[Rfam]
RNA sequence: UUGUGGGGAUGAUUUCCACAAUUGAACUCUCUCUUUCUCAUGGAGUAGUGAGAGAUUAUAAUACAUUCUGAGUAGA
Numbered sequence: 001u002u003g004u005g006g007g008g009a010u011g012a013u014u015u016c017c018a019c020a021a022u023u024g025a026a027c028u029c030u031c032u033c034u035u036u037c038u039c040a041u042g043g044a045g046u047a048g049u050g051a052g053a054g055a056u057u058a059u060a061a062u063a064c065a066u067u068c069u070g071a072g073u074a075g076a
Stems, first nucleotide, its partner, number of pairs: 001075004